[Rfam]
Nucleotides: 045
Base pairs, nucleotide, nucleotide: 006021007020008019009018010017011016
Number, partner (000 for none) and nucleotide at each position: 001000a002000c003000a004000a005000a006021g007020g008019c009018u010017c011016u012000u013000u014000u015000c016011a017010g018009a019008g020007c021006c022000a023000c024000c025000a026000a027000a028000u029000a030000u031000u032000c033000a034000a035000g036000a037000a038000a039000g040000a041000u042000c043000c044000a045000a
The record is a 45-nucleotide sequence from Strongylocentrotus purpuratus, which matches "Histone 3' UTR stem-loop" in Rfam.
The base pairs follow the family's consensus structure, which is taken from published work.
The mRNAs of metazoan histone genes lack a poly-A tail. 3' end processing occurs at a site between a highly conserved stem-loop (modelled by this family) and a purine rich region around 20 nts downstream (the histone downstream element, or HDE). The stem-loop is bound by a 31 kDa stem-loop binding protein (SLBP - also termed the histone hairpin binding protein, or HBP).
A reference for the family is Williams and Marzluff (1995), "The sequence of the stem and flanking sequences at the 3' end of histone mRNA are critical determinants for the binding of the stem-loop binding protein", Nucleic Acids Res.